PreQ1 (pre queuosine) riboswitch aptamer: a 44-nucleotide sequence from Schinkia azotoformans. A search with the family's covariance model found it, with a score of 46 bits. Rfam describes the family as follows. This family is a bacterial riboswitch that binds to the metabolite preQ1, an intermediate in the biosynthesis of the modified nucleoside queuosine from GTP. One example of this riboswitch is located in the leader of the Bacillus subtilis ykvJKLM (queCDEF) operon which encodes four genes necessary for queuosine production. PreQ1 binding to the riboswitch aptamer is thought to induce premature transcription termination within the leader to down-regulate expression of these genes. Taxonomically the source falls in Schinkia azotoformans (Bacteria, Bacillati, Bacillota, Schinkia). Its family is annotated with queuosine biosynthetic process in the Gene Ontology.
RNA sequence: ACGGUAGAGGUUCUUAGCUACCCUCUCUAAAAAACUAAGAAGGA
Numbered sequence: 001a002c003g004g005u006a007g008a009g010g011u012u013c014u015u016a017g018c019u020a021c022c023c024u025c026u027c028u029a030a031a032a033a034a035c036u037a038a039g040a041a042g043g044a
Base pairs, nucleotide, nucleotide: 006026007025008024009023010022015037016036